The family of this 59-nucleotide RNA from Dechloromonas sp. TW-R-39-2 is "Betaproteobacteria toxic small RNA". For this family Rfam cites "A vast collection of microbial genes that are toxic to bacteria" (Kimelman et al., Genome Res, 2012). The family has 51 seed sequences and 951 matches in Rfam 15.1. NCBI's taxonomy places the organism under Bacteria, Pseudomonadati, Betaproteobacteria, Azonexaceae, Dechloromonas.

RNA sequence: UGUCUCCUCCAUCUCCUCCAAGAAAUGGAUUUAAGCCCGCCUUGUGCGGGCUUUUUUUG
Numbered sequence: 001u002g003u004c005u006c007c008u009c010c011a012u013c014u015c016c017u018c019c020a021a022g023a024a025a026u027g028g029a030u031u032u033a034a035g036c037c038c039g040c041c042u043u044g045u046g047c048g049g050g051c052u053u054u055u056u057u058u059g
Stems, first nucleotide, its partner, number of pairs: 008029005013022001034052007